RNA sequence: UUUGCCUUCGAAUAACUAGAUGUGGCAAUUUAAGACUGCAUUUGGUUCAGACAAGGGCAUAUAAUAACGAUACAAGGGGGAUUGUGUUGGAAUCUAUUUCAUCACUUUUCCAUUUUGUAUACUUACAAGGUAUAUAUAUAA
Numbered sequence: 001u002u003u004g005c006c007u008u009c010g011a012a013u014a015a016c017u018a019g020a021u022g023u024g025g026c027a028a029u030u031u032a033a034g035a036c037u038g039c040a041u042u043u044g045g046u047u048c049a050g051a052c053a054a055g056g057g058c059a060u061a062u063a064a065u066a067a068c069g070a071u072a073c074a075a076g077g078g079g080g081a082u083u084g085u086g087u088u089g090g091a092a093u094c095u096a097u098u099u100c101a102u103c104a105c106u107u108u109u110c111c112a113u114u115u116u117g118u119a120u121a122c123u124u125a126c127a128a129g130g131u132a133u134a135u136a137u138a139u140a141a
Stems, first nucleotide, its partner, number of pairs: 003059006014047008023038003070133004075108003080103003084100001088096003114129005
RNA: Small nucleolar RNA snoR138